[Rfam]
Annotation: The family of this 91-nucleotide sequence from Microcebus murinus is "GRIK4 3 prime UTR element". Taxonomically the source falls in Microcebus (Eukaryota, Eumetazoa, Eutheria, Euarchontoglires).
RNA sequence: UAGCCCCGGCGGCGGCAGGACGCGGGAGGCCCGGCGGGGAGCGGGAGGGGCUGGGCCGGCGCCGCCGUCCGUGCGCGCCCGGGCUUGCGCA
Numbered sequence: 001u002a003g004c005c006c007c008g009g010c011g012g013c014g015g016c017a018g019g020a021c022g023c024g025g026g027a028g029g030c031c032c033g034g035c036g037g038g039g040a041g042c043g044g045g046a047g048g049g050g051c052u053g054g055g056c057c058g059g060c061g062c063c064g065c066c067g068u069c070c071g072u073g074c075g076c077g078c079c080c081g082g083g084c085u086u087g088c089g090c091a
Base pairs, nucleotide, nucleotide: 003051004050005049006048007047011031012030013029
The family has 8 seed sequences and 71 matches in Rfam 15.1. The literature on the family includes a 2008 paper in Proc Natl Acad Sci U S A by Pickard et al., "A common variant in the 3'UTR of the GRIK4 glutamate receptor gene affects transcript abundance and protects against bipolar disorder".